[Rfam]
RNA: DUF805b RNA
RNA sequence: AAGGCGGUAACCGAAAAGCCUGAACAGAGAGUAGGUA
Numbered sequence: 001a002a003g004g005c006g007g008u009a010a011c012c013g014a015a016a017a018g019c020c021u022g023a024a025c026a027g028a029g030a031g032u033a034g035g036u037a
Stems, first nucleotide, its partner, number of pairs: 002021004010036003